[Rfam]
RNA sequence: CACACGAAACGGCAAACCCUCCGCGAGGAGGCGACGCAAAGCCACAGGACUCUCCGAGUCAGCUGGGCUACCGAA
Numbered sequence: 001c002a003c004a005c006g007a008a009a010c011g012g013c014a015a016a017c018c019c020u021c022c023g024c025g026a027g028g029a030g031g032c033g034a035c036g037c038a039a040a041g042c043c044a045c046a047g048g049a050c051u052c053u054c055c056g057a058g059u060c061a062g063c064u065g066g067g068c069u070a071c072c073g074a075a
Stems, first nucleotide, its partner, number of pairs: 012037002018031005040069004045065003048060005
RNA: c-di-GMP-I riboswitch aptamer